[Rfam]
RNA sequence: GUUGAGGCUCCAUCUACCAAUGGAUAAUUCUUUAGCGUUAGUCUAGACCUAGUUUAGAAAUACGAGCAAUAUAAGCCUUCUUUUUAAUUUAAAGAAGGCUUAUAUUGCUCAUU
Numbered sequence: 001g002u003u004g005a006g007g008c009u010c011c012a013u014c015u016a017c018c019a020a021u022g023g024a025u026a027a028u029u030c031u032u033u034a035g036c037g038u039u040a041g042u043c044u045a046g047a048c049c050u051a052g053u054u055u056a057g058a059a060a061u062a063c064g065a066g067c068a069a070u071a072u073a074a075g076c077c078u079u080c081u082u083u084u085u086a087a088u089u090u091a092a093a094g095a096a097g098g099c100u101u102a103u104a105u106u107g108c109u110c111a112u113u
Stems, first nucleotide, its partner, number of pairs: 009024005062112001064110009074100001079098003085095001

Plastid-psbA-1 3UTR RNA: a 113-nucleotide RNA sequence from Lobularia maritima. The organism belongs to Lobularia, within Eukaryota. By type it is a cis-regulatory element. Rfam describes the family as follows. Plastid psbA-1 is a non-coding RNA (ncRNA) present in plastids. It was identified in inverted repeat sequences in the 3 prime untranslate region (3UTR) of photosystem II quinone-binding protein (psbA). For this family Rfam cites "Retrograde signaling in plants: A critical review focusing on the GUN pathway and beyond" (Richter et al., Plant Commun, 2023).